[Rfam]
RNA sequence: AACAUGCUCCCUUAGAUCCAUCUUUGUUUGAUGUCUCUUGUGCUGAGUUCUGCUUAAACUUUAAGUAGUUCCAGAUAAGAGGGAUCGGCAACUUCACGGUUGUACAGUCAAAGAUGCUUGAGUCAUUGGCAUGUGAGAACAAUACACCUUCACUCUAGUCUCAUGUUCUGAUAGAAAUGACUUUUAAUACAUGUCAUUCUUAACUAUCAGGAUUUAGCUGGAGUGUGGACAUG
Numbered sequence: 001a002a003c004a005u006g007c008u009c010c011c012u013u014a015g016a017u018c019c020a021u022c023u024u025u026g027u028u029u030g031a032u033g034u035c036u037c038u039u040g041u042g043c044u045g046a047g048u049u050c051u052g053c054u055u056a057a058a059c060u061u062u063a064a065g066u067a068g069u070u071c072c073a074g075a076u077a078a079g080a081g082g083g084a085u086c087g088g089c090a091a092c093u094u095c096a097c098g099g100u101u102g103u104a105c106a107g108u109c110a111a112a113g114a115u116g117c118u119u120g121a122g123u124c125a126u127u128g129g130c131a132u133g134u135g136a137g138a139a140c141a142a143u144a145c146a147c148c149u150u151c152a153c154u155c156u157a158g159u160c161u162c163a164u165g166u167u168c169u170g171a172u173a174g175a176a177a178u179g180a181c182u183u184u185u186a187a188u189a190c191a192u193g194u195c196a197u198u199c200u201u202a203a204c205u206a207u208c209a210g211g212a213u214u215u216a217g218c219u220g221g222a223g224u225g226u227g228g229a230c231a232u233g
Base pairs, nucleotide, nucleotide: 002134003133004132005131006130007129008128011122012121013120014119015118019116020115021114022113023112024111025110026109029087030086031085032084036080037079038078039077043074044073045072047071050068051067052066053065056062088103089102090101091100092099093098148228149227151225152224155221157219158218159217167211168210169209170208171207172206173205174204178203179199181193183191

Small nucleolar RNA SNORA53: a 233-nucleotide RNA sequence from Anolis carolinensis. It is one of the family's seed sequences. The snoRNA ACA53 belongs to the H/ACA family of pseudouridylation guide snoRNAs.